[Rfam]
Nucleotides: 108
Stems, first nucleotide, its partner, number of pairs: 006096005011060004016054001017031005039053004066089004070083004
Number, partner (000 for none) and nucleotide at each position: 001000a002000g003000u004000a005000c006096c007095c008094a009093c010092a011060a012059g013058g014057g015000g016054a017031g018030c019029u020028g021027a022000u023000g024000a025000a026000g027021u028020c029019a030018g031017c032000u033000g034000a035000g036000a037000u038000u039053g040052u041051g042050c043000a044000c045000u046000c047000g048000u049000u050042g051041c052040a053039c054016u055000a056000a057014c058013u059012c060011u061000u062000u063000g064000a065000a066089c067088c068087u069086g070083u071082a072081a073080g074000u075000u076000a077000g078000c079000a080073c081072u082071u083070g084000c085000g086069u087068a088067g089066g090000g091000a092010u093009g094008u095007g096006g097000a098000u099000a100000g101000a102000a103000a104000c105000c106000g107000a108000c

The record is a 108-nucleotide RNA sequence from Ureibacillus yapensis, which matches "TPP riboswitch aptamer (THI element)" in Rfam. Vitamin B(1) in its active form thiamin pyrophosphate (TPP) is an essential coenzyme that is synthesised by coupling of pyrimidine and thiazole moieties in bacteria. The previously detected thiamin-regulatory element, thi box was extended, resulting in a new, highly conserved RNA secondary structure, the THI element, which is widely distributed in eubacteria and also occurs in some archaea. Analysis of operon structures identified a large number of new candidate thiamin-regulated genes, mostly transporters, in various prokaryotic organisms. Lineage of the source: Bacteria > Bacillati > Caryophanales > Caryophanaceae > Ureibacillus. Pairs were carried over by alignment from the consensus structure, which is taken from published work.